[Rfam]
RNA sequence: GCUCCGAUAGUGUAGCAGGCCAAUCAUUCUGGCCUUUCAAGUUUCAUGCGCAAAAGUACUGAAAUAAAGACAGCCAGUGACUCGGGUUCAAAUCCCGAUCGGAGCA
Numbered sequence: 001g002c003u004c005c006g007a008u009a010g011u012g013u014a015g016c017a018g019g020c021c022a023a024u025c026a027u028u029c030u031g032g033c034c035u036u037u038c039a040a041g042u043u044u045c046a047u048g049c050g051c052a053a054a055a056g057u058a059c060u061g062a063a064a065u066a067a068a069g070a071c072a073g074c075c076a077g078u079g080a081c082u083c084g085g086g087u088u089c090a091a092a093u094c095c096c097g098a099u100c101g102g103a104g105c106a
Base pairs, nucleotide, nucleotide: 001105002104003103004102005101006100007099010027011026012025029077030076031075032074033073082098083097084096085095086094
A member of the RNA family "tRNA" from Candidatus Methanoperedens sp., 106 nucleotides long. The organism belongs to Candidatus Methanoperedens, within Archaea. It is annotated as a transfer RNA. Transfer RNA (tRNA) molecules are approximately 80 nucleotides in length.